[Rfam]
RNA sequence: GUUUCUGAUGAUGAUAUAAACCAUAAAAACUUUCGUUCUUCUGAGAGGAAAAUCGAUGCGGAAUCCUAUAUGGAGACCUGAGCUGAAGAGAC
Number, nucleotide and partner (000 for none) at each position: 001g000002u000003u090004u089005c088006u087007g000008a000009u000010g000011a000012u000013g000014a000015u000016a000017u000018a000019a000020a000021c000022c000023a000024u000025a000026a000027a000028a000029a000030c000031u000032u000033u000034c000035g000036u000037u000038c000039u000040u000041c000042u000043g000044a000045g000046a000047g000048g000049a000050a000051a000052a000053u000054c000055g000056a000057u000058g000059c000060g000061g000062a000063a000064u000065c000066c000067u000068a000069u000070a000071u000072g000073g000074a000075g000076a000077c000078c000079u000080g000081a000082g000083c000084u000085g000086a000087a006088g005089a004090g003091a000092c000
Notes: Rfam assigns this 92-nucleotide sequence from Theobroma cacao to the family "Small nucleolar RNA Z159/U59". A reference for the family is Chen et al. (2003), "The high diversity of snoRNAs in plants: identification and comparative study of 120 snoRNA genes from Oryza sativa", Nucleic Acids Res. The family's consensus secondary structure was predicted with PFOLD. The match comes from Rfam's covariance-model search (58 bits). Rfam links the family to the GO terms nucleolus and RNA processing. Taxonomically the source falls in Theobroma (Eukaryota, Viridiplantae, Euphyllophyta, eudicotyledons). It is annotated as a C/D-box small nucleolar RNA.